RNA sequence: CGGUCGGCCCUCAGACUUGGAUCGUCCGGCACGUUCCUGCCGGUCAGAAGGGUACGGU
Numbered sequence: 001c002g003g004u005c006g007g008c009c010c011u012c013a014g015a016c017u018u019g020g021a022u023c024g025u026c027c028g029g030c031a032c033g034u035u036c037c038u039g040c041c042g043g044u045c046a047g048a049a050g051g052g053u054a055c056g057g058u
Stems, first nucleotide, its partner, number of pairs: 009050001011048002014045002026043006
This 58-nucleotide RNA from Catenulispora acidiphila belongs to the Rfam family "msiK RNA".
The organism belongs to Catenulispora acidiphila, within Bacteria.
It scores 40 bits against the family's covariance model.
The family's consensus secondary structure is taken from published work.